[Rfam]
RNA: Bacterial small subunit ribosomal RNA, nucleotides 1 to 509
RNA sequence: CAACUUGAGAGUUUGAUCCUGGCUCAGAACGAACGCUGGCGGCAGGCUUAACACAUGCAAGUCGAGCGAGGACUUCGGUCCUAGCGGCGGACGGGUGAGUAACGCGUGGGAACGUACCCUCUUCUUCGGAAUAGCCCUGGGAAACUGGGAGUAAUGCCGGAUACGCCCCUUGGGGGAAAGAUUUAUCGGAGGAGGAUCGGCCCGCGUUGGAUUAGGUAGUUGGUGGGGUAAUGGCCUACCAAGCCGACGAUCCAUAGCUGGUUUGAGAGGAUGAUCAGCCACACUGGGACUGAGACACGGCCCAGACUCCUACGGGAGGCAGCAGUGGGGAAUCUUGGACAAUGGGGGAAACCCUGAUCCAGCCAUGCCGCGUGAUCGAUGAAGGCCUUAGGGUUGUAAAGAUCUUUCAGCUGGGAAGAUAAUGACUGUACCAGCAGAAGAAGCCCCGGCUAACUCCGUGCCAGCAGCCGCGGUAAUACGGAGGGGGCUAGCGUUGUUCGGAAUUACUG
Numbered sequence: 001c002a003a004c005u006u007g008a009g010a011g012u013u014u015g016a017u018c019c020u021g022g023c024u025c026a027g028a029a030c031g032a033a034c035g036c037u038g039g040c041g042g043c044a045g046g047c048u049u050a051a052c053a054c055a056u057g058c059a060a061g062u063c064g065a066g067c068g069a070g071g072a073c074u075u076c077g078g079u080c081c082u083a084g085c086g087g088c089g090g091a092c093g094g095g096u097g098a099g100u101a102a103c104g105c106g107u108g109g110g111a112a113c114g115u116a117c118c119c120u121c122u123u124c125u126u127c128g129g130a131a132u133a134g135c136c137c138u139g140g141g142a143a144a145c146u147g148g149g150a151g152u153a154a155u156g157c158c159g160g161a162u163a164c165g166c167c168c169c170u171u172g173g174g175g176g177a178a179a180g181a182u183u184u185a186u187c188g189g190a191g192g193a194g195g196a197u198c199g200g201c202c203c204g205c206g207u208u209g210g211a212u213u214a215g216g217u218a219g220u221u222g223g224u225g226g227g228g229u230a231a232u233g234g235c236c237u238a239c240c241a242a243g244c245c246g247a248c249g250a251u252c253c254a255u256a257g258c259u260g261g262u263u264u265g266a267g268a269g270g271a272u273g274a275u276c277a278g279c280c281a282c283a284c285u286g287g288g289a290c291u292g293a294g295a296c297a298c299g300g301c302c303c304a305g306a307c308u309c310c311u312a313c314g315g316g317a318g319g320c321a322g323c324a325g326u327g328g329g330g331a332a333u334c335u336u337g338g339a340c341a342a343u344g345g346g347g348g349a350a351a352c353c354c355u356g357a358u359c360c361a362g363c364c365a366u367g368c369c370g371c372g373u374g375a376u377c378g379a380u381g382a383a384g385g386c387c388u389u390a391g392g393g394u395u396g397u398a399a400a401g402a403u404c405u406u407u408c409a410g411c412u413g414g415g416a417a418g419a420u421a422a423u424g425a426c427u428g429u430a431c432c433a434g435c436a437g438a439a440g441a442a443g444c445c446c447c448g449g450c451u452a453a454c455u456c457c458g459u460g461c462c463a464g465c466a467g468c469c470g471c472g473g474u475a476a477u478a479c480g481g482a483g484g485g486g487g488c489u490a491g492c493g494u495u496g497u498u499c500g501g502a503a504u505u506a507c508u509g
Stems, first nucleotide, its partner, number of pairs: 009025005027499004032495006039371006045364002047329001052327003056324003061088003066085002069082005095282003104207007113199002118195007126160004136149005166175003180187002208254003215245003220242008257279004261272004284305005307318004335361001337360003343356005374404004384395004408440001410435005418426001443488005454483005464471002